[Rfam]
A member of the RNA family "MIR821 microRNA precursor family" from Miscanthus lutarioriparius, 275 nucleotides long. Taxonomically the source falls in Miscanthus (Eukaryota, Streptophytina, Tracheophyta, Andropogonodae). The base pairs follow the family's consensus structure, which was predicted with RNAalifold.
RNA sequence: GAUUUCAUCUUAAAAAGUCAUGAACAUGAAAGUUGUACAACUCAUCAAGAUGUACAACUUUUAUUUUGGUCAUUUGUUCAUUCAAGGAAGUGAUAGUAACAUUGUUCACAACUUUUACAUAUCUCUCAUAUGGUUUCAUAAAUUAUAAGAGAGAUAUGUAGAUUUUGUGAACAAUGUUACUACCACUUUCUCGGAUGAAGAAAUGACCAAAAUAAAAGUUGUAUAUCAUGAUCAAUUCUACAACUUUAUUGUUGAUGACUUUUUUAGCUGAAAUC
Numbered sequence: 001g002a003u004u005u006c007a008u009c010u011u012a013a014a015a016a017g018u019c020a021u022g023a024a025c026a027u028g029a030a031a032g033u034u035g036u037a038c039a040a041c042u043c044a045u046c047a048a049g050a051u052g053u054a055c056a057a058c059u060u061u062u063a064u065u066u067u068g069g070u071c072a073u074u075u076g077u078u079c080a081u082u083c084a085a086g087g088a089a090g091u092g093a094u095a096g097u098a099a100c101a102u103u104g105u106u107c108a109c110a111a112c113u114u115u116u117a118c119a120u121a122u123c124u125c126u127c128a129u130a131u132g133g134u135u136u137c138a139u140a141a142a143u144u145a146u147a148a149g150a151g152a153g154a155u156a157u158g159u160a161g162a163u164u165u166u167g168u169g170a171a172c173a174a175u176g177u178u179a180c181u182a183c184c185a186c187u188u189u190c191u192c193g194g195a196u197g198a199a200g201a202a203a204u205g206a207c208c209a210a211a212a213u214a215a216a217a218g219u220u221g222u223a224u225a226u227c228a229u230g231a232u233c234a235a236u237u238c239u240a241c242a243a244c245u246u247u248a249u250u251g252u253u254g255a256u257g258a259c260u261u262u263u264u265u266a267g268c269u270g271a272a273a274u275c
Stems, first nucleotide, its partner, number of pairs: 014262008023253002026250001030246008039237002042234001044232004049227005055221013069207007077199005083193001085191008094182006101175011114162002117159006131145006